RNA: Small nucleolar RNA SNORA31
Organism: Urocynchramus pylzowi
RNA sequence: AUGCAUCUGUUUGACAGACCUGGAGCAAACACUGUUGCUUCUCAGGUUCUCUUUUGAGGUGCAACAGUAACAGGUUCCUUGCUUCUGCCUGUCUGACCCAGUGGCAGUUUGGAUUGAAUAAAGGAACACAAAU
Numbered sequence: 001a002u003g004c005a006u007c008u009g010u011u012u013g014a015c016a017g018a019c020c021u022g023g024a025g026c027a028a029a030c031a032c033u034g035u036u037g038c039u040u041c042u043c044a045g046g047u048u049c050u051c052u053u054u055u056g057a058g059g060u061g062c063a064a065c066a067g068u069a070a071c072a073g074g075u076u077c078c079u080u081g082c083u084u085c086u087g088c089c090u091g092u093c094u095g096a097c098c099c100a101g102u103g104g105c106a107g108u109u110u111g112g113a114u115u116g117a118a119u120a121a122a123g124g125a126a127c128a129c130a131a132a133u
Base pairs, nucleotide, nucleotide: 002063003062004061005060006059007058008057013051017048018047019046020045023040024039025038026037027036028035076125077124078123079122080121085116089112090111091110093107094106095105097103